RNA: transfer-messenger RNA
RNA sequence: GGGGGCGACUGGUUUCGACAGGGUGGUCCUGAGGUGGGCAGCAAGCCGUGGUCUCCUCGCCACGUUAAACAGGGGUACCGUCAAAUUGAAUUGACGACAACUCUUACCAGGGCGCUUACGCCCUCGCUGCUUAAUUUACUAGCGGCCGUCAAAGCGGGGAUUUCUCCUGUUCCCGCGGCGACGUCAUUUUAGGGAGAUGCUCGUGCGGACGUCGUUGGUAUGCCGCACGAUAAGACCGAACCAGCUGGGACGCCGAGCGCGGGUCACGGAGUGUGACGCGUCCGAGACUUAAUCGGUGACUGAGCUUGGAGACACCUGCCAGGGGACUGUUCUGGACCGGAGUUCGAUCCUCCGCGCCUCCACCA
Numbered sequence: 001g002g003g004g005g006c007g008a009c010u011g012g013u014u015u016c017g018a019c020a021g022g023g024u025g026g027u028c029c030u031g032a033g034g035u036g037g038g039c040a041g042c043a044a045g046c047c048g049u050g051g052u053c054u055c056c057u058c059g060c061c062a063c064g065u066u067a068a069a070c071a072g073g074g075g076u077a078c079c080g081u082c083a084a085a086u087u088g089a090a091u092u093g094a095c096g097a098c099a100a101c102u103c104u105u106a107c108c109a110g111g112g113c114g115c116u117u118a119c120g121c122c123c124u125c126g127c128u129g130c131u132u133a134a135u136u137u138a139c140u141a142g143c144g145g146c147c148g149u150c151a152a153a154g155c156g157g158g159g160a161u162u163u164c165u166c167c168u169g170u171u172c173c174c175g176c177g178g179c180g181a182c183g184u185c186a187u188u189u190u191a192g193g194g195a196g197a198u199g200c201u202c203g204u205g206c207g208g209a210c211g212u213c214g215u216u217g218g219u220a221u222g223c224c225g226c227a228c229g230a231u232a233a234g235a236c237c238g239a240a241c242c243a244g245c246u247g248g249g250a251c252g253c254c255g256a257g258c259g260c261g262g263g264u265c266a267c268g269g270a271g272u273g274u275g276a277c278g279c280g281u282c283c284g285a286g287a288c289u290u291a292a293u294c295g296g297u298g299a300c301u302g303a304g305c306u307u308g309g310a311g312a313c314a315c316c317u318g319c320c321a322g323g324g325g326a327c328u329g330u331u332c333u334g335g336a337c338c339g340g341a342g343u344u345c346g347a348u349c350c351u352c353c354g355c356g357c358c359u360c361c362a363c364c365a
Base pairs, nucleotide, nucleotide: 001361002360003359004358005357006356007355019334020333021332022331023330024329025328026327027326028325029324030323033320034319035318036317037316038315042308043307044306045305046304047064048063049062050061051060052077054075055074056073057072125144126143127142128141129140147183148182149181150180154176155175156174157173158172159171160170161169163197164196165195166194167193168192201230202229203228204227205226206225207224208223214245215244216243217242218241248283249282250281251280252279253278258273259272260271263300264299265298266297269294270293338354339353340352341351342350